[Rfam]
RNA sequence: UUGACUGCGUGUCCGGCUCUCCAUAUUCAUAGCCGGGGACAGCUUUAACAAGGAGGAAUAUUCGCUUCCCCGGGACUCGGGGUGCGGCAGUGUGGAGACCUGUCGUAAUGCGGGAGGCCGGGGCCCCCGCGAGGGCGUUCAGGCGGAGGCCGGGCGCUCAGAGUCGGCAAGUAUGGCA
Numbered sequence: 001u002u003g004a005c006u007g008c009g010u011g012u013c014c015g016g017c018u019c020u021c022c023a024u025a026u027u028c029a030u031a032g033c034c035g036g037g038g039a040c041a042g043c044u045u046u047a048a049c050a051a052g053g054a055g056g057a058a059u060a061u062u063c064g065c066u067u068c069c070c071c072g073g074g075a076c077u078c079g080g081g082g083u084g085c086g087g088c089a090g091u092g093u094g095g096a097g098a099c100c101u102g103u104c105g106u107a108a109u110g111c112g113g114g115a116g117g118c119c120g121g122g123g124c125c126c127c128c129g130c131g132a133g134g135g136c137g138u139u140c141a142g143g144c145g146g147a148g149g150c151c152g153g154g155c156g157c158u159c160a161g162a163g164u165c166g167g168c169a170a171g172u173a174u175g176g177c178a
Base pairs, nucleotide, nucleotide: 009040010039012037013036014035015034016033017032018031068082069081070080071079074165075164076163077162078161083107084106085105086104087103088102089101090100092099093098110130111129112128113127114126116125117124118123133159134158135157136156137155138154139153140152142151143150144149